The family of this 131-nucleotide RNA from Thryothorus ludovicianus is "Small nucleolar RNA SNORA3/SNORA45 family". The match comes from Rfam's covariance-model search (101 bits). On this family, see Huttenhofer et al., EMBO J 2001: "RNomics: an experimental approach that identifies 201 candidates for novel, small, non-messenger RNAs in mouse". The members of this family belong to the H/ACA class of snoRNAs which are thought to guide the sites of modification of uridines to pseudouridines. This family includes mouse snoMBI-28 and human homologues ACA3 (SNORA3) and ACA3-2 (SNORA45). Both ACA3 and ACA3-2 share the same host gene. MBI-28, ACA3 and ACA3-2 are all predicted to guide the pseudouridylation of residues in 28S rRNA. By type it is an H/ACA-box small nucleolar RNA.
RNA sequence: CCCGAGACUAGAGUCACACCUGGGCCCUGCCUGUGGUCCUGGUGUGCUAGAGUGCUCGGACAGGAACCACUAAUCUCUAUUCACUGGCUGUGCCCUUCCUGGCUCAGUCAGUCACCAGGUUAGUGACAGCA
Numbered sequence: 001c002c003c004g005a006g007a008c009u010a011g012a013g014u015c016a017c018a019c020c021u022g023g024g025c026c027c028u029g030c031c032u033g034u035g036g037u038c039c040u041g042g043u044g045u046g047c048u049a050g051a052g053u054g055c056u057c058g059g060a061c062a063g064g065a066a067c068c069a070c071u072a073a074u075c076u077c078u079a080u081u082c083a084c085u086g087g088c089u090g091u092g093c094c095c096u097u098c099c100u101g102g103c104u105c106a107g108u109c110a111g112u113c114a115c116c117a118g119g120u121u122a123g124u125g126a127c128a129g130c131a
Base pairs, nucleotide, nucleotide: 002059003058004057005056006055007053008052009051012048013047015046016045017044018043019042020041023038024037025036026035070123071122072121073120074119075118076117083112084111085110086109087108089106090105092103093102094101